[Rfam]
RNA sequence: UAUCAUUAGCCUGAAUUAAAAAACACGGGGAAACCAUUUUUUGGGGUGAAUCACAUGUUUAUGUGUAGGUUUGUGCCUUUACCGAAUCCGUCAGCUAACCUCGUAAAAUAAAAGGAGGAAUA
Numbered sequence: 001u002a003u004c005a006u007u008a009g010c011c012u013g014a015a016u017u018a019a020a021a022a023a024c025a026c027g028g029g030g031a032a033a034c035c036a037u038u039u040u041u042u043g044g045g046g047u048g049a050a051u052c053a054c055a056u057g058u059u060u061a062u063g064u065g066u067a068g069g070u071u072u073g074u075g076c077c078u079u080u081a082c083c084g085a086a087u088c089c090g091u092c093a094g095c096u097a098a099c100c101u102c103g104u105a106a107a108a109u110a111a112a113a114g115g116a117g118g119a120a121u122a
Base pairs, nucleotide, nucleotide: 012106016023017022025104026103027102028101029100030099035043036042044089045088046087052065053064054063055062068083069082070081
RNA: c-di-AMP riboswitch aptamer (ydaO/yuaA leader)
Organism: Clostridium sp. CT7